The family of this 106-nucleotide RNA sequence from Mesobacillus boroniphilus is "SAM riboswitch aptamer (S box leader)". The family's consensus secondary structure is taken from published work. It scores 97 bits against the family's covariance model. The organism belongs to Mesobacillus boroniphilus, within Bacteria.
Nucleotides: 106
Stems, first nucleotide, its partner, number of pairs: 001106008013042005021031003026078003043071004048067002050063001052061002075098001080095006
Number, partner (000 for none) and nucleotide at each position: 001106u002105u003104c004103u005102u006101a007100u008099c009000a010000a011000g012000a013042g014041a015040g016039g017038u018000g019000g020000a021031g022030g023029g024000a025000a026078a027077g028076g029023c030022c031021c032000u033000g034000c035000g036000a037000a038017a039016c040015c041014u042013c043071g044070g045069c046068a047000a048067c049066a050063g051000g052061u053060u054000c055000u056000u057000a058000a059000c060053g061052a062000a063050u064000a065000c066049u067048g068046u069045g070044c071043c072000a073000a074000u075098u076028c077027c078026u079000g080095c081094g082093g083092a084091c085090a086000a087000u088000u089000u090085u091084g092083u093082c094081u095080g096000a097000a098075a099008g100007a101006u102005g103004a104003g105002a106001a